[Rfam]
RNA sequence: CUUAGCCCGUGCAACGAGGCCUCUGCCCGAAUUGGCCCUGGCGUACUUCCCCAACGCCAGGUCCGUGAAUUCGGACAGAGACCCCGGUGCAGGGGCCAUUCCGA
Numbered sequence: 001c002u003u004a005g006c007c008c009g010u011g012c013a014a015c016g017a018g019g020c021c022u023c024u025g026c027c028c029g030a031a032u033u034g035g036c037c038c039u040g041g042c043g044u045a046c047u048u049c050c051c052c053a054a055c056g057c058c059a060g061g062u063c064c065g066u067g068a069a070u071u072c073g074g075a076c077a078g079a080g081a082c083c084c085c086g087g088u089g090c091a092g093g094g095g096c097c098a099u100u101c102c103g104a
Stems, first nucleotide, its partner, number of pairs: 010091004015086002018083002021080005027074006033065003037061008